[Rfam]
Rfam assigns this 89-nucleotide RNA sequence from Hafnia alvei to the family "OmrA-B family".
By type it is a small RNA.
The organism belongs to Hafnia alvei, within Bacteria.
RNA sequence: CCCAGAGGUAUUGAUUGGUGGGUUUUUCAGUGCAUUUGCUACUGAGCCAAUAAAUUACACCGACCUACGCGGAUGCGUAGGUUUUUUUU
Number, nucleotide and partner (000 for none) at each position: 001c000002c000003c000004a000005g000006a000007g000008g000009u000010a000011u000012u000013g000014a000015u000016u062017g061018g060019u059020g058021g051022g000023u000024u000025u000026u046027u045028c044029a043030g042031u041032g000033c000034a000035u000036u000037u000038g000039c000040u000041a031042c030043u029044g028045a027046g026047c000048c000049a000050a000051u021052a000053a000054a000055u000056u000057a000058c020059a019060c018061c017062g016063a082064c081065c080066u079067a078068c077069g076070c075071g000072g000073a000074u000075g070076c069077g068078u067079a066080g065081g064082u063083u000084u000085u000086u000087u000088u000089u000